The family of this 88-nucleotide sequence from Loigolactobacillus rennini is "SAM-III riboswitch aptamer (SMK box)".
RNA sequence: UAUGGUUUGCAUUUAGGUUCCCGAAAGGAUUUGUGAAAAGUCACAAAAAUGCCUUGUAACCGAUUAUUAAAAGGGGGAAUAAGUUAUU
Dot-bracket structure: .................(((((..((((.(((((........)))))....))))....((...........))))))).........
On this family, see Fuchs et al., Nat Struct Mol Biol 2006: "The S(MK) box is a new SAM-binding RNA for translational regulation of SAM synthetase".